[Rfam]
RNA sequence: UUGCUGUGAUGAUUUUAUGUUGUGGUUUCCAUCACUGAAUGUACAGUUAUGAGGACACCUUUUCCUUGGCUGUGUCUGAGCAA
Numbered sequence: 001u002u003g004c005u006g007u008g009a010u011g012a013u014u015u016u017a018u019g020u021u022g023u024g025g026u027u028u029c030c031a032u033c034a035c036u037g038a039a040u041g042u043a044c045a046g047u048u049a050u051g052a053g054g055a056c057a058c059c060u061u062u063u064c065c066u067u068g069g070c071u072g073u074g075u076c077u078g079a080g081c082a083a
Stems, first nucleotide, its partner, number of pairs: 001083004
Overview
Small nucleolar RNA SNORD53/SNORD92: an 83-nucleotide RNA sequence from Hymenochirus boettgeri. By type it is a C/D-box small nucleolar RNA. Taxonomically the source falls in Hymenochirus (Eukaryota, Opisthokonta, Deuterostomia, Vertebrata). For this family Rfam cites "RNomics: an experimental approach that identifies 201 candidates for novel, small, non-messenger RNAs in mouse" (Huttenhofer et al., EMBO J, 2001).